[Rfam]
RNA sequence: CAGUUGAGAGGCCUGCCUUUUAUGCGGGUCGCGAGAACAUAGUUUCUCCUUGACUG
Numbered sequence: 001c002a003g004u005u006g007a008g009a010g011g012c013c014u015g016c017c018u019u020u021u022a023u024g025c026g027g028g029u030c031g032c033g034a035g036a037a038c039a040u041a042g043u044u045u046c047u048c049c050u051u052g053a054c055u056g
Stems, first nucleotide, its partner, number of pairs: 001056008010030007033048005
RNA: DUF3800-VI RNA